[Rfam]
A member of the RNA family "mir-153 microRNA precursor family" from Holothuria leucospilota, 75 nucleotides long.
The literature on the family includes a 2005 paper in Genes Dev by Chen et al., "The developmental miRNA profiles of zebrafish as determined by small RNA cloning".
A search with the family's covariance model found it, with a score of 62 bits.
The family has 63 seed sequences and 1,565 matches in Rfam 15.1.
The base pairs follow the family's consensus structure, which was predicted with RNAalifold.
RNA sequence: UGCCCGGUCAUUUUUGUGAUUAAGCAACUUGUGAUUAUGCAUUGUCAGUUGCAUAGUCACAAAAGUGAUUGGGAA
Numbered sequence: 001u002g003c004c005c006g007g008u009c010a011u012u013u014u015u016g017u018g019a020u021u022a023a024g025c026a027a028c029u030u031g032u033g034a035u036u037a038u039g040c041a042u043u044g045u046c047a048g049u050u051g052c053a054u055a056g057u058c059a060c061a062a063a064a065g066u067g068a069u070u071g072g073g074a075a
Base pairs, nucleotide, nucleotide: 003073004072005071006070008068009067010066011065012064013063014062015061016060017059018058019057020056024052025051026050027049028048029047